[Rfam]
Nucleotides: 149
Base pairs, nucleotide, nucleotide: 034055036053037052038051039050040049041048042047061088062087064085065084066083067082070079096105097104098103121141122140123139124138125137126136127135
Number, partner (000 for none) and nucleotide at each position: 001000u002000u003000g004000a005000c006000u007000c008000a009000u010000g011000a012000a013000u014000g015000a016000g017000a018000a019000u020000u021000g022000u023000u024000a025000u026000u027000a028000u029000u030000c031000a032000c033000u034055c035000a036053a037052c038051u039050g040049a041048u042047c043000g044000c045000g046000a047042g048041a049040u050039c051038a052037g053036u054000c055034g056000a057000u058000a059000a060000g061088c062087u063000c064085a065084a066083g067082a068000g069000a070079c071000u072000c073000u074000c075000a076000u077000c078000a079070g080000g081000c082067u083066c084065u085064u086000c087062a088061g089000g090000u091000u092000a093000u094000c095000u096105c097104c098103u099000c100000a101000u102000c103098a104097g105096g106000c107000u108000a109000a110000u111000c112000a113000c114000g115000g116000u117000u118000a119000u120000u121141g122140a123139c124138c125137c126136g127135g128000c129000u130000a131000a132000c133000a134000c135127c136126c137125g138124g139123g140122u141121c142000u143000u144000u145000u146000u147000u148000u149000g